[Rfam]
RNA sequence: ACACUCCCUCCGUCCCGAAAUGUAAGAUGUUUUUUGAGACUGUGAUAGUAUCAAAAAGCGUCUUACAUUUUGGGACGGAGGGAGUAG
Dot-bracket structure: ..(((.(((((.(((((.(((((((((((((((((((.(((.....))).))))))))))))))))))).))))).))))).)))..

Rfam assigns this 87-nucleotide RNA from Aegilops tauschii to the family "MIR1120/MIR1122 microRNA precursor family". A reference for the family is Yao et al. (2007), "Cloning and characterization of microRNAs from wheat (Triticum aestivum L.)", Genome Biol. NCBI's taxonomy places the organism under Eukaryota, Poales, Pooideae, Aegilops, Aegilops tauschii.